[Rfam]
RNA sequence: GAAUCAGAUGAUGAAUUUGGAUUAAUCAUCUCACGACGGUCGUCUGAGACACUUUUGUGUGUCGACGCUGAAACGAUCCAAGCUUCUGAUGGUU
Numbered sequence: 001g002a003a004u005c006a007g008a009u010g011a012u013g014a015a016u017u018u019g020g021a022u023u024a025a026u027c028a029u030c031u032c033a034c035g036a037c038g039g040u041c042g043u044c045u046g047a048g049a050c051a052c053u054u055u056u057g058u059g060u061g062u063c064g065a066c067g068c069u070g071a072a073a074c075g076a077u078c079c080a081a082g083c084u085u086c087u088g089a090u091g092g093u094u
Stems, first nucleotide, its partner, number of pairs: 001094002004091001050059003
The family of this 94-nucleotide sequence from Rosa chinensis is "Small nucleolar RNA Z161/Z228". The organism belongs to Rosa, within Eukaryota. Its Rfam clan is "SNORD35 clan". Pairs were carried over by alignment from the consensus structure, which was predicted with PFOLD. It scores 70 bits against the family's covariance model.